[Rfam]
RNA sequence: AGGGCAUACAUUCAAGGCUACAGCAGAAGUGCUCAUGGCGCAGCCCUGUCAGAUUCCAAUAAAUCUGCAAAUUCUGCU
Numbered sequence: 001a002g003g004g005c006a007u008a009c010a011u012u013c014a015a016g017g018c019u020a021c022a023g024c025a026g027a028a029g030u031g032c033u034c035a036u037g038g039c040g041c042a043g044c045c046c047u048g049u050c051a052g053a054u055u056c057c058a059a060u061a062a063a064u065c066u067g068c069a070a071a072u073u074c075u076g077c078u
Stems, first nucleotide, its partner, number of pairs: 016045004022078007029041003050067006

Rfam assigns this 78-nucleotide RNA from Crocodylus porosus to the family "Mammalian CPEB3 ribozyme". Rfam describes the family as follows. The mammalian CPEB3 ribozyme is a self cleaving RNA located in the second intron of the CPEB3 gene which belongs to a family of genes regulating messenger RNA polyadenylation. This ribozyme is highly conserved and found only in mammals. The CPEB3 ribozyme is structurally and biochemically related to the human hepatitis delta virus (HDV) ribozyme and the HDV ribozyme is proposed to have arisen from the human transcriptome. NCBI's taxonomy places the organism under Eukaryota, Opisthokonta, Metazoa, Archelosauria, Crocodylus. The family's consensus secondary structure is taken from published work.